[Rfam]
RNA sequence: AUCUCUUUGCCUUUUGGCUUAGAUCCAGUGUAGUAUCUGUUCUUUUCAGUGUAACAACUGAAAUGUCAUCAUUGAUGACUUUACAUUUAUGUUACAAAUUUAUUUAUUUUUGGAUAUUGGGUAGAUUGAUUUAUUAAAGUGGGCUUGCUCACAGUCUUUCUACAUAGUGUCGUUGCCACUGUACUUUUAUUUUGGCUUCUGACGCAAAUUUUU
Numbered sequence: 001a002u003c004u005c006u007u008u009g010c011c012u013u014u015u016g017g018c019u020u021a022g023a024u025c026c027a028g029u030g031u032a033g034u035a036u037c038u039g040u041u042c043u044u045u046u047c048a049g050u051g052u053a054a055c056a057a058c059u060g061a062a063a064u065g066u067c068a069u070c071a072u073u074g075a076u077g078a079c080u081u082u083a084c085a086u087u088u089a090u091g092u093u094a095c096a097a098a099u100u101u102a103u104u105u106a107u108u109u110u111u112g113g114a115u116a117u118u119g120g121g122u123a124g125a126u127u128g129a130u131u132u133a134u135u136a137a138a139g140u141g142g143g144c145u146u147g148c149u150c151a152c153a154g155u156c157u158u159u160c161u162a163c164a165u166a167g168u169g170u171c172g173u174u175g176c177c178a179c180u181g182u183a184c185u186u187u188u189a190u191u192u193u194g195g196c197u198u199c200u201g202a203c204g205c206a207a208a209u210u211u212u213u
Base pairs, nucleotide, nucleotide: 004023005022006021009018010017011016044063045062046061047060048059049058065079066078067077068076069075070074121163122162123161124160125159128156140151141150142149143148167205168204169203170202171201175196176195177194178193